[Rfam]
RNA sequence: GGAAUGAUGAUGACAACAAAUUUCUGAGGAUGUUGAUCGACUUGUAACUAUGCCAAUCUGUGCUCC
Dot-bracket structure: (((.(........................................................).)))
RNA: Small nucleolar RNA SNORD109A
Organism: Mesocricetus auratus